Shown here is an 81-nucleotide RNA sequence from Conger conger, a member of the family "mir-31 microRNA precursor family". Gene Ontology terms of the family: gene silencing by miRNA and RISC complex. On this family, see Ma et al., bioRxiv [Preprint] 2023: "Structure of pre-miR-31 reveals an active role in Dicer processing".
[Rfam]
RNA sequence: GAGGAAGAGGCUGGCAAGAUGUUGGCAUAGCUGUUGAGUACUGGGUCCUGCUAUGCUUUCAUAUUGCUAGCUUUUUGCUUC
Numbered sequence: 001g002a003g004g005a006a007g008a009g010g011c012u013g014g015c016a017a018g019a020u021g022u023u024g025g026c027a028u029a030g031c032u033g034u035u036g037a038g039u040a041c042u043g044g045g046u047c048c049u050g051c052u053a054u055g056c057u058u059u060c061a062u063a064u065u066g067c068u069a070g071c072u073u074u075u076u077g078c079u080u081c
Stems, first nucleotide, its partner, number of pairs: 005076013019062003024057008